[Rfam]
RNA sequence: UUGCAUGCUUUUCCACGGCUUUCUUGAACUUGGGACUCGAGAGACAUGAGAGAGGUUUCAUUCUUUUAGAUUUUCUUGAGUUUUCCAUCCGUACCAGUCCUCCCUUUAGUACAAAGCUCAAGAAAGCCGUGGGAAAAUAUGAAAG
Number, nucleotide and partner (000 for none) at each position: 001u000002u000003g000004c141005a140006u139007g138008c000009u000010u000011u000012u000013c132014c131015a130016c000017g128018g127019c126020u125021u124022u123023c000024u121025u120026g119027a118028a000029c116030u115031u114032g000033g112034g000035a000036c000037u000038c000039g000040a000041g000042a000043g000044a000045c000046a000047u000048g000049a000050g000051a000052g000053a000054g000055g000056u000057u000058u000059c000060a000061u000062u000063c000064u000065u000066u000067u000068a000069g000070a000071u000072u000073u000074u000075c000076u000077u000078g000079a000080g000081u000082u000083u000084u000085c000086c000087a000088u000089c000090c000091g000092u000093a000094c000095c000096a000097g000098u000099c000100c000101u000102c000103c000104c000105u000106u000107u000108a000109g000110u000111a000112c033113a000114a031115a030116g029117c000118u027119c026120a025121a024122g000123a022124a021125a020126g019127c018128c017129g000130u015131g014132g013133g000134a000135a000136a000137a000138u007139a006140u005141g004142a000143a000144a000145g000

Annotation: The family of this 145-nucleotide RNA from Salix purpurea is "MIR396 microRNA precursor family". Pairs were carried over by alignment from the consensus structure, which was predicted with WAR.